[Rfam]
RNA sequence: GCGAGGUGACGAUAAAAUUCAACGGUCUGUCAAUCCACUGACAAAUUUUGAUUGAUGUUAAACAUUGAAUCCCGACAGGUUCUGAUCGC
Numbered sequence: 001g002c003g004a005g006g007u008g009a010c011g012a013u014a015a016a017a018u019u020c021a022a023c024g025g026u027c028u029g030u031c032a033a034u035c036c037a038c039u040g041a042c043a044a045a046u047u048u049u050g051a052u053u054g055a056u057g058u059u060a061a062a063c064a065u066u067g068a069a070u071c072c073c074g075a076c077a078g079g080u081u082c083u084g085a086u087c088g089c
Stems, first nucleotide, its partner, number of pairs: 001089004
This 89-nucleotide RNA from Helianthus annuus belongs to the Rfam family "Small nucleolar RNA snoR14". It is annotated as a C/D-box small nucleolar RNA. A reference for the family is Brown et al. (2001), "Multiple snoRNA gene clusters from Arabidopsis", RNA. Taxonomically the source falls in Helianthus (Eukaryota, Streptophyta, Pentapetalae, Asteraceae). Its family is annotated with RNA processing and nucleolus in the Gene Ontology. Clan: SNORD110 clan. It scores 87 bits against the family's covariance model.